[Rfam]
RNA sequence: UCUAGGGCGCGACUGGCGCACAGAAGGUGGGGCACCACCGGGGAGCGGGCCGAGCGGGGGCCGAGCGCCUGGGUCCCCGCA
Numbered sequence: 001u002c003u004a005g006g007g008c009g010c011g012a013c014u015g016g017c018g019c020a021c022a023g024a025a026g027g028u029g030g031g032g033c034a035c036c037a038c039c040g041g042g043g044a045g046c047g048g049g050c051c052g053a054g055c056g057g058g059g060g061c062c063g064a065g066c067g068c069c070u071g072g073g074u075c076c077c078c079g080c081a
Stems, first nucleotide, its partner, number of pairs: 001054001003052001005050001008047003013042002015069005027038004058076005
RNA: ZMP/ZTP riboswitch aptamer (pfl RNA motif)
Organism: Nonomuraea soli